[Rfam]
RNA sequence: GCUGAUCCAUGAUGAUUACUUGAUACAAGACGACUGUUGGAUGAAGCUUGCGGAUAUGGGACUGAGAUCAAUG
Numbered sequence: 001g002c003u004g005a006u007c008c009a010u011g012a013u014g015a016u017u018a019c020u021u022g023a024u025a026c027a028a029g030a031c032g033a034c035u036g037u038u039g040g041a042u043g044a045a046g047c048u049u050g051c052g053g054a055u056a057u058g059g060g061a062c063u064g065a066g067a068u069c070a071a072u073g
Base pairs, nucleotide, nucleotide: 001072003070004069005068
Small nucleolar RNA SNORD99: a 73-nucleotide sequence from Etheostoma spectabile.
Taxonomically the source falls in Oligocephalus (Eukaryota, Chordata, Clupeocephala, Ctenosquamata).
Rfam classes the family as a C/D-box small nucleolar RNA.
For this family Rfam cites "Purified box C/D snoRNPs are able to reproduce site-specific 2'-O-methylation of target RNA in vitro" (Galardi et al., Mol Cell Biol, 2002).
Clan: SNORD58 clan.
The base pairs follow the family's consensus structure, which was predicted with RNAalifold.